[Rfam]
RNA sequence: AGAUGAGGUAGAGGUGCAAAAAUUAAAAGUAUUACUAGGGAGGUAUUAGGAUACCUGUGAACUAGUAAAAAAGGAAUUUUUGCCGAAGUCUAAUAGAUUCCUAAAUUAUUAGGCUGGGUCUGUACUUAAGAGGUACAGGACUGUCAUCUAUAGUUACCCGACCUUAGAUGGAGUGCUAUCUCAGUA
Numbered sequence: 001a002g003a004u005g006a007g008g009u010a011g012a013g014g015u016g017c018a019a020a021a022a023u024u025a026a027a028a029g030u031a032u033u034a035c036u037a038g039g040g041a042g043g044u045a046u047u048a049g050g051a052u053a054c055c056u057g058u059g060a061a062c063u064a065g066u067a068a069a070a071a072a073g074g075a076a077u078u079u080u081u082g083c084c085g086a087a088g089u090c091u092a093a094u095a096g097a098u099u100c101c102u103a104a105a106u107u108a109u110u111a112g113g114c115u116g117g118g119u120c121u122g123u124a125c126u127u128a129a130g131a132g133g134u135a136c137a138g139g140a141c142u143g144u145c146a147u148c149u150a151u152a153g154u155u156a157c158c159c160g161a162c163c164u165u166a167g168a169u170g171g172a173g174u175g176c177u178a179u180c181u182c183a184g185u186a
Stems, first nucleotide, its partner, number of pairs: 006181006016083009032068007087115010098104001116142002119139008144171007
This 186-nucleotide RNA from Desulfonispora thiosulfatigenes belongs to the Rfam family "Lysine riboswitch aptamer". The match comes from Rfam's covariance-model search (138 bits). The organism belongs to Desulfonispora thiosulfatigenes, within Bacteria. The family's consensus secondary structure is taken from published work.